[Rfam]
RNA: pan motif
Organism: Paenibacillus cellulosilyticus
RNA sequence: AAGGCGGUAUCCGCUUGGAAUUGCACUUGCGACCAUGCACGGAGUUUCGUUUAGAUUUGCCAGAUAGGCAACUGCGCACUCUGCUCUGAGCCGUUAGGGACCGAGACAGAAGG
Numbered sequence: 001a002a003g004g005c006g007g008u009a010u011c012c013g014c015u016u017g018g019a020a021u022u023g024c025a026c027u028u029g030c031g032a033c034c035a036u037g038c039a040c041g042g043a044g045u046u047u048c049g050u051u052u053a054g055a056u057u058u059g060c061c062a063g064a065u066a067g068g069c070a071a072c073u074g075c076g077c078a079c080u081c082u083g084c085u086c087u088g089a090g091c092c093g094u095u096a097g098g099g100a101c102c103g104a105g106a107c108a109g110a111a112g113g
Stems, first nucleotide, its partner, number of pairs: 001028003004024005010019002081109003084105003088101001091099002